Source information:
Rfam assigns this 78-nucleotide sequence from Mytilus coruscus to the family "mir-981 microRNA precursor family". NCBI's taxonomy places the organism under Eukaryota, Eumetazoa, Bilateria, Bivalvia, Mytilus. It scores 60 bits against the family's covariance model. Rfam links the family to the GO terms miRNA-mediated post-transcriptional gene silencing and RISC complex.
RNA sequence: CUAUUUUGACGGGUUUCGCGAUUUAUGAACAUUAACUUAUUAAGGUUGUUCGUUGUCGUCGAAACCUGCCUUAGAUAG
Numbered sequence: 001c002u003a004u005u006u007u008g009a010c011g012g013g014u015u016u017c018g019c020g021a022u023u024u025a026u027g028a029a030c031a032u033u034a035a036c037u038u039a040u041u042a043a044g045g046u047u048g049u050u051c052g053u054u055g056u057c058g059u060c061g062a063a064a065c066c067u068g069c070c071u072u073a074g075a076u077a078g
Stems, first nucleotide, its partner, number of pairs: 001078004010068009027051005